[Rfam]
RNA sequence: GGUGAAUGUGCCUGAAACCUUGGCUCAGACCUGGCCAUUCUGCAGGUGAGCAAAGUUUCAGGUGUAUUUACUG
Numbered sequence: 001g002g003u004g005a006a007u008g009u010g011c012c013u014g015a016a017a018c019c020u021u022g023g024c025u026c027a028g029a030c031c032u033g034g035c036c037a038u039u040c041u042g043c044a045g046g047u048g049a050g051c052a053a054a055g056u057u058u059c060a061g062g063u064g065u066a067u068u069u070a071c072u073g
Stems, first nucleotide, its partner, number of pairs: 002071006009064007017056002020053002024050004030046003